[Rfam]
RNA sequence: UUCGUAAAUAGAGGUGCAACAAGAAGGUAAUACAAUUAUGCUAAGAGUAAGAACACUCGAUGAAUUGUACUAAUGUCUUUGUUGCCGAAGAGACUUAUUCGUUCUUGGAUAUUUCUUUGGUGGUAAUGUUCAGCACUUACCAUUGCCAUGUUAAUCAUGGAGCGCUAUUUACGUC
Numbered sequence: 001u002u003c004g005u006a007a008a009u010a011g012a013g014g015u016g017c018a019a020c021a022a023g024a025a026g027g028u029a030a031u032a033c034a035a036u037u038a039u040g041c042u043a044a045g046a047g048u049a050a051g052a053a054c055a056c057u058c059g060a061u062g063a064a065u066u067g068u069a070c071u072a073a074u075g076u077c078u079u080u081g082u083u084g085c086c087g088a089a090g091a092g093a094c095u096u097a098u099u100c101g102u103u104c105u106u107g108g109a110u111a112u113u114u115c116u117u118u119g120g121u122g123g124u125a126a127u128g129u130u131c132a133g134c135a136c137u138u139a140c141c142a143u144u145g146c147c148a149u150g151u152u153a154a155u156c157a158u159g160g161a162g163c164g165c166u167a168u169u170u171a172c173g174u175c
Stems, first nucleotide, its partner, number of pairs: 006170006016085008031069007089118005096111005119144008146160005
The family of this 175-nucleotide RNA sequence from Acetoanaerobium sticklandii is "Lysine riboswitch aptamer". Gene Ontology term of the family: lysine biosynthetic process. The match comes from Rfam's covariance-model search (64 bits). Riboswitches are metabolite binding domains within certain messenger RNAs that serve as precision sensors for their corresponding targets.